This 130-nucleotide RNA sequence from Anisodus acutangulus belongs to the Rfam family "MIR397 microRNA precursor family". The organism belongs to Anisodus, within Eukaryota. The literature on the family includes a 2009 paper in Plant Cell by Wu et al., "Rice MicroRNA effector complexes and targets". Rfam 15.1 lists 496 matches to the family in 218 species.
[Rfam]
RNA sequence: CUUAGAAAUAUAAUUGAGUGCAGCGUUGAUGAAAAUGUCAACUUUUUACCAAGUUUUUAAUGGUGCUAGCUUUCAUCAUUCUUCAUUUCGUAGAGCAUUUUCAUCUACACUGUACUCAAUCAUGUUUUUA
Numbered sequence: 001c002u003u004a005g006a007a008a009u010a011u012a013a014u015u016g017a018g019u020g021c022a023g024c025g026u027u028g029a030u031g032a033a034a035a036u037g038u039c040a041a042c043u044u045u046u047u048a049c050c051a052a053g054u055u056u057u058u059a060a061u062g063g064u065g066c067u068a069g070c071u072u073u074c075a076u077c078a079u080u081c082u083u084c085a086u087u088u089c090g091u092a093g094a095g096c097a098u099u100u101u102c103a104u105c106u107a108c109a110c111u112g113u114a115c116u117c118a119a120u121c122a123u124g125u126u127u128u129u130a
Stems, first nucleotide, its partner, number of pairs: 006127006013120011025108002028105001030103009